A member of the RNA family "TPP riboswitch aptamer (THI element)" from Starkeya sp. ORNL1, 100 nucleotides long. A search with the family's covariance model found it, with a score of 68 bits.
RNA sequence: ACGAUCUCGUUGGGGUGUCCGAAAGGGCUGAGAGGCGGUUCCGCCAACCCACGAACCUGAUCCGGAUCAUGCCGGCGGAGGGAACGGGUCGCGCUCAUGC
Numbered sequence: 001a002c003g004a005u006c007u008c009g010u011u012g013g014g015g016u017g018u019c020c021g022a023a024a025g026g027g028c029u030g031a032g033a034g035g036c037g038g039u040u041c042c043g044c045c046a047a048c049c050c051a052c053g054a055a056c057c058u059g060a061u062c063c064g065g066a067u068c069a070u071g072c073c074g075g076c077g078g079a080g081g082g083a084a085c086g087g088g089u090c091g092c093g094c095u096c097a098u099g100c
Stems, first nucleotide, its partner, number of pairs: 006088005011051004017028004035044003056081003062075004

Annotation
The base pairs follow the family's consensus structure, which is taken from published work. Taxonomically the source falls in Starkeya (Bacteria, Pseudomonadati, Alphaproteobacteria, Hyphomicrobiales).